[Rfam]
RNA sequence: GGAUCCAUCUUACCUGACAGUGCUGGAUUGUACAAAAAAGUUCUAACACUGUCUGGUAACGAUGUUUCC
Numbered sequence: 001g002g003a004u005c006c007a008u009c010u011u012a013c014c015u016g017a018c019a020g021u022g023c024u025g026g027a028u029u030g031u032a033c034a035a036a037a038a039a040g041u042u043c044u045a046a047c048a049c050u051g052u053c054u055g056g057u058a059a060c061g062a063u064g065u066u067u068c069c
Stems, first nucleotide, its partner, number of pairs: 002068002006064004010059005016053007024045004
RNA: mir-8/mir-141/mir-200 microRNA precursor family
Organism: Oncorhynchus kisutch